[Rfam]
RNA sequence: UGAGAGAUAGGAUAUCUUAGUAACAACGAAUCAUGAGAAGUCAGCAGAGGUCAUAGUAGGUUGUCUACCAACUGAAGGAC
Numbered sequence: 001u002g003a004g005a006g007a008u009a010g011g012a013u014a015u016c017u018u019a020g021u022a023a024c025a026a027c028g029a030a031u032c033a034u035g036a037g038a039a040g041u042c043a044g045c046a047g048a049g050g051u052c053a054u055a056g057u058a059g060g061u062u063g064u065c066u067a068c069c070a071a072c073u074g075a076a077g078g079a080c
Stems, first nucleotide, its partner, number of pairs: 001028002006021001008019004041048002050080003059073005

A member of the RNA family "Group II catalytic intron D1-D4-1" from Globicatella sp. HMSC072A10, 80 nucleotides long. It scores 50 bits against the family's covariance model. Lineage of the source: Bacteria > Bacillota > Bacilli > Aerococcaceae > Globicatella. Rfam describes the family as follows. Group II introns are found in rRNA, tRNA and mRNA of organelles in fungi, plants and protists, and also in mRNA in bacteria.